[Rfam]
RNA: Small nucleolar RNA snoR53Y
Organism: Cucurbita maxima
RNA sequence: GUUCCCAGUGAUGAUUAACUUGACCAUGCUAAUGCUGAUCACUUUGUGAUUAAUCUUUACUUUAAUUGUUCUGAGGGAACU
Numbered sequence: 001g002u003u004c005c006c007a008g009u010g011a012u013g014a015u016u017a018a019c020u021u022g023a024c025c026a027u028g029c030u031a032a033u034g035c036u037g038a039u040c041a042c043u044u045u046g047u048g049a050u051u052a053a054u055c056u057u058u059a060c061u062u063u064a065a066u067u068g069u070u071c072u073g074a075g076g077g078a079a080c081u
Stems, first nucleotide, its partner, number of pairs: 001080005